[Rfam]
The family of this 316-nucleotide sequence from Fregetta grallaria is "Nuclear RNase P". NCBI's taxonomy places the organism under Eukaryota, Dipnotetrapodomorpha, Sauropsida, Hydrobatidae, Fregetta. Ribonuclease P (RNase P) is a ubiquitous endoribonuclease, found in archaea, bacteria and eukarya as well as chloroplasts and mitochondria. It scores 156 bits against the family's covariance model.
RNA sequence: UCCGGGGGAAGCUCACCGCCGAGGCCACCCACUGGGUGCGCGUCACCCCCACCCCGCCUCGGGGAAGGUCUGAGGGAAGGGCCACUGCGCGGCUCCAGCAGAGCUCCGCCCACGCGGGGCGGGUGAGUCACCAGCAAGGGGGGGCGCCGCGCUGGCGCCAGCCUGGGCAGGAGAAACCGGGGAGGCUCCGCUGAGCCCCGGCGGAUGCUCGCGGCCCCGCGGUGCUUUGAGACAGACUCACGGCCGGCGGCGCUUGAGUCCAAUGGGUGAGGUGGGGCACGGCCCUACAACCCAAUUCAGACUACUCUCGCUCGGA
Numbered sequence: 001u002c003c004g005g006g007g008g009a010a011g012c013u014c015a016c017c018g019c020c021g022a023g024g025c026c027a028c029c030c031a032c033u034g035g036g037u038g039c040g041c042g043u044c045a046c047c048c049c050c051a052c053c054c055c056g057c058c059u060c061g062g063g064g065a066a067g068g069u070c071u072g073a074g075g076g077a078a079g080g081g082c083c084a085c086u087g088c089g090c091g092g093c094u095c096c097a098g099c100a101g102a103g104c105u106c107c108g109c110c111c112a113c114g115c116g117g118g119g120c121g122g123g124u125g126a127g128u129c130a131c132c133a134g135c136a137a138g139g140g141g142g143g144g145c146g147c148c149g150c151g152c153u154g155g156c157g158c159c160a161g162c163c164u165g166g167g168c169a170g171g172a173g174a175a176a177c178c179g180g181g182g183a184g185g186c187u188c189c190g191c192u193g194a195g196c197c198c199c200g201g202c203g204g205a206u207g208c209u210c211g212c213g214g215c216c217c218c219g220c221g222g223u224g225c226u227u228u229g230a231g232a233c234a235g236a237c238u239c240a241c242g243g244c245c246g247g248c249g250g251c252g253c254u255u256g257a258g259u260c261c262a263a264u265g266g267g268u269g270a271g272g273u274g275g276g277g278c279a280c281g282g283c284c285c286u287a288c289a290a291c292c293c294a295a296u297u298c299a300g301a302c303u304a305c306u307c308u309c310g311c312u313c314g315g316a
Stems, first nucleotide, its partner, number of pairs: 001316004008309002012271006020061005034048005070300005080245004091105005106122006123241007143226009272288007